RNA: Glycine riboswitch aptamer
Organism: Streptomyces tirandamycinicus
RNA sequence: UGAAUCCGCGCGGGAGAGUCCCGGCCACUCUGUGGGCCGGGCGCCGAAGGAGCAAGUCCCUCCCUUGAAUCUCUCAGGCCCCGUACCGCGCGCGACGA
Dot-bracket structure: ......(((((((......(((((((........))))))).(((((..(((...(.........)....))))).)))......)))))))......
Numbered sequence: 001u002g003a004a005u006c007c008g009c010g011c012g013g014g015a016g017a018g019u020c021c022c023g024g025c026c027a028c029u030c031u032g033u034g035g036g037c038c039g040g041g042c043g044c045c046g047a048a049g050g051a052g053c054a055a056g057u058c059c060c061u062c063c064c065u066u067g068a069a070u071c072u073c074u075c076a077g078g079c080c081c082c083g084u085a086c087c088g089c090g091c092g093c094g095a096c097g098a
Stems, first nucleotide, its partner, number of pairs: 007092007020041007043079003046075002050073003056066001